[Rfam]
RNA sequence: CUCUUAUUUAGAGCAGUGGAGAUACAUAGGAUCUGUGAAGCUGCGGCAACCCCUGACAGACAGGAAGGUGCCAACCUGAGCGAGUAACUCGAACAAUAAGAG
Numbered sequence: 001c002u003c004u005u006a007u008u009u010a011g012a013g014c015a016g017u018g019g020a021g022a023u024a025c026a027u028a029g030g031a032u033c034u035g036u037g038a039a040g041c042u043g044c045g046g047c048a049a050c051c052c053c054u055g056a057c058a059g060a061c062a063g064g065a066a067g068g069u070g071c072c073a074a075c076c077u078g079a080g081c082g083a084g085u086a087a088c089u090c091g092a093a094c095a096a097u098a099a100g101a102g
Stems, first nucleotide, its partner, number of pairs: 001102008013044005021033003027080001030077001045072004050068002052064004081091004
RNA: SAM riboswitch aptamer (S box leader)
Organism: Mediterraneibacter butyricigenes